[Rfam]
RNA sequence: GCUUGUCUCACGGGGAGCCUCAUUCGAGGCUGAGAGGUGGCUAGGCUGCCGACCCGUCGAACCUGAUCCGGGUCAUGCCGGCGGAGGGAAUGAGCAUGCGAUAUCGC
Numbered sequence: 001g002c003u004u005g006u007c008u009c010a011c012g013g014g015g016a017g018c019c020u021c022a023u024u025c026g027a028g029g030c031u032g033a034g035a036g037g038u039g040g041c042u043a044g045g046c047u048g049c050c051g052a053c054c055c056g057u058c059g060a061a062c063c064u065g066a067u068c069c070g071g072g073u074c075a076u077g078c079c080g081g082c083g084g085a086g087g088g089a090a091u092g093a094g095c096a097u098g099c100g101a102u103a104u105c106g107c
Stems, first nucleotide, its partner, number of pairs: 007094004011056004017030005037049005062087003068081004
The family of this 107-nucleotide RNA sequence from Microvirga guangxiensis is "TPP riboswitch aptamer (THI element)". The family's consensus secondary structure is taken from published work. NCBI's taxonomy places the organism under Bacteria, Pseudomonadati, Pseudomonadota, Alphaproteobacteria, Microvirga.